[Rfam]
RNA sequence: CUCCGCGCCAAGUACGCGGAGCCUUUUUCCGAAUGCAACAAGGGGUCUGCCCGUG
Numbered sequence: 001c002u003c004c005g006c007g008c009c010a011a012g013u014a015c016g017c018g019g020a021g022c023c024u025u026u027u028u029c030c031g032a033a034u035g036c037a038a039c040a041a042g043g044g045g046u047c048u049g050c051c052c053g054u055g
Stems, first nucleotide, its partner, number of pairs: 001021007
Annotation: ClpQY promoter: a 55-nucleotide sequence from Pantoea sp. Eser. The pairing is the family consensus, mapped onto this sequence. A search with the family's covariance model found it, with a score of 50 bits.